[Rfam]
RNA sequence: AUUCUCCGGUUUCUCUUCAGAUCGUAUACAUCCUUCGCCUUUUACUAAACAUUUCCGUGGAGAGAAACGCGUACGACUCCUACGAAAACUUUUGUGGCUCCAUUAAGGUGGAGC
Numbered sequence: 001a002u003u004c005u006c007c008g009g010u011u012u013c014u015c016u017u018c019a020g021a022u023c024g025u026a027u028a029c030a031u032c033c034u035u036c037g038c039c040u041u042u043u044a045c046u047a048a049a050c051a052u053u054u055c056c057g058u059g060g061a062g063a064g065a066a067a068c069g070c071g072u073a074c075g076a077c078u079c080c081u082a083c084g085a086a087a088a089c090u091u092u093u094g095u096g097g098c099u100c101c102a103u104u105a106a107g108g109u110g111g112a113g114c
Base pairs, nucleotide, nucleotide: 005076006075009068010067011066012065013064014063015062016061017060018059019058028054030052031051034048035047097114098113099112100111101110102109
A member of the RNA family "U5 spliceosomal RNA" from Setophaga kirtlandii, 114 nucleotides long. Lineage of the source: Eukaryota > Coelurosauria > Passeriformes > Passeroidea > Setophaga. It is annotated as a spliceosomal small nuclear RNA. Pairs were carried over by alignment from the consensus structure, which is taken from published work. It scores 66 bits against the family's covariance model.